Rfam assigns this 101-nucleotide RNA from Hoskinsella hominis to the family "azaaromatic riboswitch aptamer (yjdF RNA)".
[Rfam]
RNA sequence: UGUAGCAAAGAUGAAAACACAGUCUGGUUGGUAGUCCAGACAUAUCCUUUAUGGAUAUCAGUAACCCUCCUCCUUGGUCGUCCCUUCUUUGUGUUUGCAGC
Numbered sequence: 001u002g003u004a005g006c007a008a009a010g011a012u013g014a015a016a017a018c019a020c021a022g023u024c025u026g027g028u029u030g031g032u033a034g035u036c037c038a039g040a041c042a043u044a045u046c047c048u049u050u051a052u053g054g055a056u057a058u059c060a061g062u063a064a065c066c067c068u069c070c071u072c073c074u075u076g077g078u079c080g081u082c083c084c085u086u087c088u089u090u091g092u093g094u095u096u097g098c099a100g101c
Stems, first nucleotide, its partner, number of pairs: 005092007022041006042058006069077002
A search with the family's covariance model found it, with a score of 81 bits.